Shown here is a 98-nucleotide RNA from Pseudonocardia thermophila, a member of the family "mraW RNA". Rfam classes the family as a cis-regulatory element.
[Rfam]
RNA sequence: ACCCGACGUGAUGGCGGUGCCUCGACCCGGCAGCCCUGGCGCACCUUCCCCGGUGCCAGGUCUGCCGGGUGGGGGCAUCGCCGCACCUGCCGGGUCUC
Numbered sequence: 001a002c003c004c005g006a007c008g009u010g011a012u013g014g015c016g017g018u019g020c021c022u023c024g025a026c027c028c029g030g031c032a033g034c035c036c037u038g039g040c041g042c043a044c045c046u047u048c049c050c051c052g053g054u055g056c057c058a059g060g061u062c063u064g065c066c067g068g069g070u071g072g073g074g075g076c077a078u079c080g081c082c083g084c085a086c087c088u089g090c091c092g093g094g095u096c097u098c
Stems, first nucleotide, its partner, number of pairs: 010086001012083005018077002021074003025070009035060008